[Rfam]
RNA sequence: GCCGCCAGAGGUCGAAAGGGGACGACGCACCGAAAGCUAAUGCUUUCGGUCACGAGAAAUGUGGGUUUCCUCGCCCCACCUGGCGGU
Numbered sequence: 001g002c003c004g005c006c007a008g009a010g011g012u013c014g015a016a017a018g019g020g021g022a023c024g025a026c027g028c029a030c031c032g033a034a035a036g037c038u039a040a041u042g043c044u045u046u047c048g049g050u051c052a053c054g055a056g057a058a059a060u061g062u063g064g065g066u067u068u069c070c071u072c073g074c075c076c077c078a079c080c081u082g083g084c085g086g087u
Base pairs, nucleotide, nucleotide: 001087002086003085004084005083006082007081008080011026012025013024014023019072020071021070028056029050030049031048032047033046034045035044036043037042061079062078063077064076065075
Description:
Rfam assigns this 87-nucleotide sequence to the family "skipping-rope RNA". The family's RNA type in Rfam is small RNA. It is one of the family's seed sequences.